[Rfam]
Nucleotides: 077
Base pairs, nucleotide, nucleotide: 008018009017010016011015041062042061043060044059045058046057047056048055049054
Number, partner (000 for none) and nucleotide at each position: 001000g002000g003000a004000a005000c006000g007000g008018g009017c010016c011015u012000u013000u014000c015011a016010g017009g018008c019000a020000u021000c022000c023000u024000c025000u026000c027000c028000u029000a030000a031000a032000a033000c034000u035000u036000u037000u038000c039000c040000a041062g042061g043060g044059c045058u046057g047056g048055u049054c050000u051000u052000c053000g054049g055048a056047u057046c058045g059044g060043c061042c062041c063000u064000u065000u066000u067000u068000u069000u070000u071000g072000g073000c074000g075000g076000a077000u
Rfam assigns this 77-nucleotide sequence from Sphingobium wenxiniae to the family "Makes More Granules Regulator RNA (mmgR)". It scores 50 bits against the family's covariance model. The family is grouped with related families in Rfam's "suhB sRNA clan". Rfam classes the family as a small RNA. The source organism's lineage runs through Bacteria, Pseudomonadati, Sphingobiaceae, Sphingobium and Sphingobium wenxiniae.